[Rfam]
RNA sequence: ACGACCUUACUUGAACAGGAUCUGUUCUAUAGGCUCGUACCGCUGCAUUCUUUACCAAUAAGGAGGCAAGCACUUCAGUCUGGUUGAUGAGCUCUGACCACUGGGCCAGAGCGUGAUUAACGGCUCAGAUUCACCUGAUGGGUGCAUCUACGGCUGUAGAGGAUCGUUCCUGCCUGGCUCACAGUUGUGCAGGGUGGCCCAGUGGUUGUCUGACAGACA
Number, nucleotide and partner (000 for none) at each position: 001a038002c037003g035004a000005c033006c032007u031008u000009a000010c000011u000012u000013g027014a026015a025016c024017a023018g022019g000020a000021u000022c018023u017024g016025u015026u014027c013028u000029a000030u000031a007032g006033g005034c000035u003036c000037g002038u001039a000040c000041c000042g000043c000044u068045g067046c066047a000048u064049u063050c062051u061052u060053u000054a000055c000056c000057a000058a000059u000060a052061a051062g050063g049064a048065g000066g046067c045068a044069a000070g000071c000072a000073c000074u000075u000076c000077a000078g218079u217080c216081u215082g214083g000084u000085u000086g000087a000088u000089g000090a000091g000092c000093u000094c000095u000096g000097a206098c205099c204100a203101c202102u201103g200104g199105g198106c197107c196108a195109g000110a168111g167112c166113g165114u000115g000116a000117u000118u000119a000120a157121c156122g155123g154124c153125u152126c000127a149128g148129a147130u146131u000132c144133a143134c142135c141136u000137g000138a000139u000140g000141g135142g134143u133144g132145c000146a130147u129148c128149u127150a000151c000152g125153g124154c123155u122156g121157u120158a000159g000160a000161g000162g000163a000164u000165c113166g112167u111168u110169c193170c192171u191172g190173c189174c000175u187176g186177g185178c184179u000180c000181a000182c000183a000184g178185u177186u176187g175188u000189g173190c172191a171192g170193g169194g000195u108196g107197g106198c105199c104200c103201a102202g101203u100204g099205g098206u097207u000208g000209u000210c000211u000212g000213a000214c082215a081216g080217a079218c078219a000